This 109-nucleotide RNA from Propithecus coquereli belongs to the Rfam family "Y RNA". It is annotated as a non-coding RNA gene. The match comes from Rfam's covariance-model search (65 bits).
RNA sequence: AGCUGGUCCAAAGGUAGUCAGUUAUCUCACUUGAUUGUUCACAGUUUCAGACUGAACUCCUUGUUCUACUACUUUCCCCCUUCUCACUACUGCACUUGACUAGUCUUAA
Dot-bracket structure: .(((((((.((..(((((.((.................(...((.....................))...)...........)).)))...))..))))))))).....
Numbered sequence: 001a002g003c004u005g006g007u008c009c010a011a012a013g014g015u016a017g018u019c020a021g022u023u024a025u026c027u028c029a030c031u032u033g034a035u036u037g038u039u040c041a042c043a044g045u046u047u048c049a050g051a052c053u054g055a056a057c058u059c060c061u062u063g064u065u066c067u068a069c070u071a072c073u074u075u076c077c078c079c080c081u082u083c084u085c086a087c088u089a090c091u092g093c094a095c096u097u098g099a100c101u102a103g104u105c106u107u108a109a
Stems, first nucleotide, its partner, number of pairs: 002104007010097002014093002016088003020084002039071001043067002